Shown here is a 156-nucleotide RNA from Populus deltoides, a member of the family "MIR2912 microRNA precursor family". NCBI's taxonomy places the organism under Eukaryota, Streptophyta, Streptophytina, Embryophyta, Populus. It scores 124 bits against the family's covariance model.
[Rfam]
RNA sequence: UCUAGAACUUGAGAUAUGGGCUGAACACUGAACAGUGUCUGGGCUGUAGGACAGAUUCUGACUUCUCUGUUAUUGCUACCAUUUGAACUAGAAAAUUACACUUUUAAAUCUUGAACUCUGCAUGAAAGUUUUAGGCUUAUGUCUUAGCUUUCCAUA
Numbered sequence: 001u002c003u004a005g006a007a008c009u010u011g012a013g014a015u016a017u018g019g020g021c022u023g024a025a026c027a028c029u030g031a032a033c034a035g036u037g038u039c040u041g042g043g044c045u046g047u048a049g050g051a052c053a054g055a056u057u058c059u060g061a062c063u064u065c066u067c068u069g070u071u072a073u074u075g076c077u078a079c080c081a082u083u084u085g086a087a088c089u090a091g092a093a094a095a096u097u098a099c100a101c102u103u104u105u106a107a108a109u110c111u112u113g114a115a116c117u118c119u120g121c122a123u124g125a126a127a128g129u130u131u132u133a134g135g136c137u138u139a140u141g142u143c144u145u146a147g148c149u150u151u152c153c154a155u156a
Stems, first nucleotide, its partner, number of pairs: 003154001005152003008147002011145010021134005027129003035123003041119003045115001048112004054105002059100002068092001073087002